[Rfam]
RNA sequence: UGAAACAACCAUUCACUUGAGGAUCGUUCGGCACGUACCUGCCGAUGAAGGGAUUUAUCA
Numbered sequence: 001u002g003a004a005a006c007a008a009c010c011a012u013u014c015a016c017u018u019g020a021g022g023a024u025c026g027u028u029c030g031g032c033a034c035g036u037a038c039c040u041g042c043c044g045a046u047g048a049a050g051g052g053a054u055u056u057a058u059c060a
Stems, first nucleotide, its partner, number of pairs: 009052002012049004028045006